[Rfam]
RNA sequence: GUAGAUAGCCGGGCAAUCGCCCGCCUGUGCAAAACCCACGGGCGGGAGGAAAGUCCGAACACCUGCAAGCGCUGUGCUUCCUAACGGGAAGAAUUCCCGAAUGCGUUCGGGAGUAAGAAAGUGCCACAGAAAACAAACCGCCCCCGGCGCUCUGCGUCGGGAGGUAAGGGUGAAAAGGUGAGGUAAAAGCUCACCGCUCCGGUGGUGACAUGCGGAGGCAGGGUAAACCUCACAGGGUGCAAGCUCAUACAGGCAGUGCGCUGCUUGCCGCUAUACUGCCGGGUGGAGUGCUCGAGCCCUGAAGCAAUUCAGGGACCAGAUAAAUGAUUGCCAUCCCGCAAAGCGGGAUACAGAAUUCGGCUUACAGGCUAUCUCCGGUU
Dot-bracket structure: (.((((((((((((((((.(((((((((.........)))))))))....[[[.[[[[[((((........((((((((((.....)))))..(((.............)))...((...(((((............(((((((.(..........).))..)))..)).......((((((.......))))))(((((((((....))).))))).)..)))..)))))))))))))...((((.....((((((..(..((.....))..))))))).....)))).......(((((((....)))))))...........))))))).......................]]]]]]]].).)))))))).)....
Numbered sequence: 001g002u003a004g005a006u007a008g009c010c011g012g013g014c015a016a017u018c019g020c021c022c023g024c025c026u027g028u029g030c031a032a033a034a035c036c037c038a039c040g041g042g043c044g045g046g047a048g049g050a051a052a053g054u055c056c057g058a059a060c061a062c063c064u065g066c067a068a069g070c071g072c073u074g075u076g077c078u079u080c081c082u083a084a085c086g087g088g089a090a091g092a093a094u095u096c097c098c099g100a101a102u103g104c105g106u107u108c109g110g111g112a113g114u115a116a117g118a119a120a121g122u123g124c125c126a127c128a129g130a131a132a133a134c135a136a137a138c139c140g141c142c143c144c145c146g147g148c149g150c151u152c153u154g155c156g157u158c159g160g161g162a163g164g165u166a167a168g169g170g171u172g173a174a175a176a177g178g179u180g181a182g183g184u185a186a187a188a189g190c191u192c193a194c195c196g197c198u199c200c201g202g203u204g205g206u207g208a209c210a211u212g213c214g215g216a217g218g219c220a221g222g223g224u225a226a227a228c229c230u231c232a233c234a235g236g237g238u239g240c241a242a243g244c245u246c247a248u249a250c251a252g253g254c255a256g257u258g259c260g261c262u263g264c265u266u267g268c269c270g271c272u273a274u275a276c277u278g279c280c281g282g283g284u285g286g287a288g289u290g291c292u293c294g295a296g297c298c299c300u301g302a303a304g305c306a307a308u309u310c311a312g313g314g315a316c317c318a319g320a321u322a323a324a325u326g327a328u329u330g331c332c333a334u335c336c337c338g339c340a341a342a343g344c345g346g347g348a349u350a351c352a353g354a355a356u357u358c359g360g361c362u363u364a365c366a367g368g369c370u371a372u373c374u375c376c377g378g379u380u
Stems, first nucleotide, its partner, number of pairs: 001376001003374008011365001012332007020046009051363003055360005060239004072235005077091005094112003116230002121228002123224003138169002140165003143160002146157001177195006196219001197217005202211003243289004252280006260274001263271002297314007
Shown here is a 380-nucleotide sequence from Fodinibius roseus, a member of the family "Bacterial RNase P class A". The family's consensus secondary structure is taken from published work. A search with the family's covariance model found it, with a score of 256 bits. Taxonomically the source falls in Fodinibius (Bacteria, Balneolota, Balneolia, Balneolaceae). The family's RNA type in Rfam is ribozyme.